[Rfam]
RNA sequence: AGUCAUAUGCUUGUCUCAAAGAUUAAGCCAUGCAUGUCUAAGUAUAAACCAAUUUAUACAGGUGAAACUGCGAAUGGCUCAUUAAAUCAGUUAUAGUUUAUUUGAUAGUCCAAUUACUACUUGGAUAACCGUGGUAAUUCUAGAGCUAAUACAUGCUAAAAGUCCCGACUUCUGGAAGGGAUGUAUUUAUUAGAUAAAAAGCCAAUAGCCCGCAAGGGUUUUUCUUUGGUGAAUCAUGAUAACUUUUCGAAUCGCAUGGUCUUGAACCGGCGAUGAAUCAUUCAAAUUUCUGCCCUAUCAACUUUCGAUGGUAGGAUAGAGGCCUACCAUGGUUUUAACGGGUAACGGGGAAUUAGGGUUCGAUUCCGGAGAGGGAGCCUGAGAAACGGCUACCACAUCCAAGGAAGGCAGCAGGCGCGCAAAUUACCCAAUCCCGACACGGGGAGGUAGUGACAAUAAAUAACAAUACGGGGCUCAUUUGGGUCUCGUAAUUGGAAUGAGUACAAUUUAAAUCUCUUAACGAGGAACAAUUGGAGGGCAAGUCUGGUGCCAGCAGCCGCGGUAAUUCCAGCUCCAAUAGCGUAUAUUAAAGUUGUUG
Numbered sequence: 001a002g003u004c005a006u007a008u009g010c011u012u013g014u015c016u017c018a019a020a021g022a023u024u025a026a027g028c029c030a031u032g033c034a035u036g037u038c039u040a041a042g043u044a045u046a047a048a049c050c051a052a053u054u055u056a057u058a059c060a061g062g063u064g065a066a067a068c069u070g071c072g073a074a075u076g077g078c079u080c081a082u083u084a085a086a087u088c089a090g091u092u093a094u095a096g097u098u099u100a101u102u103u104g105a106u107a108g109u110c111c112a113a114u115u116a117c118u119a120c121u122u123g124g125a126u127a128a129c130c131g132u133g134g135u136a137a138u139u140c141u142a143g144a145g146c147u148a149a150u151a152c153a154u155g156c157u158a159a160a161a162g163u164c165c166c167g168a169c170u171u172c173u174g175g176a177a178g179g180g181a182u183g184u185a186u187u188u189a190u191u192a193g194a195u196a197a198a199a200a201g202c203c204a205a206u207a208g209c210c211c212g213c214a215a216g217g218g219u220u221u222u223u224c225u226u227u228g229g230u231g232a233a234u235c236a237u238g239a240u241a242a243c244u245u246u247u248c249g250a251a252u253c254g255c256a257u258g259g260u261c262u263u264g265a266a267c268c269g270g271c272g273a274u275g276a277a278u279c280a281u282u283c284a285a286a287u288u289u290c291u292g293c294c295c296u297a298u299c300a301a302c303u304u305u306c307g308a309u310g311g312u313a314g315g316a317u318a319g320a321g322g323c324c325u326a327c328c329a330u331g332g333u334u335u336u337a338a339c340g341g342g343u344a345a346c347g348g349g350g351a352a353u354u355a356g357g358g359u360u361c362g363a364u365u366c367c368g369g370a371g372a373g374g375g376a377g378c379c380u381g382a383g384a385a386a387c388g389g390c391u392a393c394c395a396c397a398u399c400c401a402a403g404g405a406a407g408g409c410a411g412c413a414g415g416c417g418c419g420c421a422a423a424u425u426a427c428c429c430a431a432u433c434c435c436g437a438c439a440c441g442g443g444g445a446g447g448u449a450g451u452g453a454c455a456a457u458a459a460a461u462a463a464c465a466a467u468a469c470g471g472g473g474c475u476c477a478u479u480u481g482g483g484u485c486u487c488g489u490a491a492u493u494g495g496a497a498u499g500a501g502u503a504c505a506a507u508u509u510a511a512a513u514c515u516c517u518u519a520a521c522g523a524g525g526a527a528c529a530a531u532u533g534g535a536g537g538g539c540a541a542g543u544c545u546g547g548u549g550c551c552a553g554c555a556g557c558c559g560c561g562g563u564a565a566u567u568c569c570a571g572c573u574c575c576a577a578u579a580g581c582g583u584a585u586a587u588u589a590a591a592g593u594u595g596u597u598g
Base pairs, nucleotide, nucleotide: 001588002587003586005585006584007583008582009581010580011579014458016456020451021418027416028415029414031413032412033411036071037070041069042068043067048063049062078371079370080369088292089291090290093287094286097285098284103280104279105278106277120155122153123152129145132142133141134140162182163181164180165179166178169175170174187242188241189240190239191238192237201230202229203228204227209218210217211216252273253272254271255270257269258268259267260266294342295341296340301333302332303331308330309329310328311327312326313325314324315323346368347367348366349365350361351360352359353358373394374393376391377390378389396407398405399404424449426448427447428446432444433443434442435441436440464494465493466492467490468489469488470487471486472485473484474483475482476481501521502520503518505517531577532576533575534574535573536572544571545570546569547568553560554559
This 598-nucleotide part of an RNA from Diversispora epigaea belongs to the Rfam family "Eukaryotic small subunit ribosomal RNA". Its Rfam clan is "SSU clan". The literature on the family includes a 2001 paper in Science by Yusupov et al., "Crystal structure of the ribosome at 5.5 A resolution". The match comes from Rfam's covariance-model search (1816 bits). The base pairs follow the family's consensus structure, which is taken from published work.